[Rfam]
Background:
The family of this 101-nucleotide RNA sequence from Streptococcus gordonii is "S10-Clostridia ribosomal protein leader". It is annotated as a cis-regulatory leader. On this family, see Eckert and Weinberg, BMC Microbiol 2020: "Discovery of 20 novel ribosomal leader candidates in bacteria and archaea".

RNA sequence: GUGUAGCUUUGAUGCAAGAGGUUGCGACACGCUCGGUUGCAUUGCCACGCAACCGCCUGUCGGUUUUCUUGUGGAGCUAGCCUAUUAUCUUAAAUAGACGA
Numbered sequence: 001g002u003g004u005a006g007c008u009u010u011g012a013u014g015c016a017a018g019a020g021g022u023u024g025c026g027a028c029a030c031g032c033u034c035g036g037u038u039g040c041a042u043u044g045c046c047a048c049g050c051a052a053c054c055g056c057c058u059g060u061c062g063g064u065u066u067u068c069u070u071g072u073g074g075a076g077c078u079a080g081c082c083u084a085u086u087a088u089c090u091u092a093a094a095u096a097g098a099c100g101a
Base pairs, nucleotide, nucleotide: 014072015071016070018068019067020066021065025062026061027060028059029058080099082097083096084095085094086093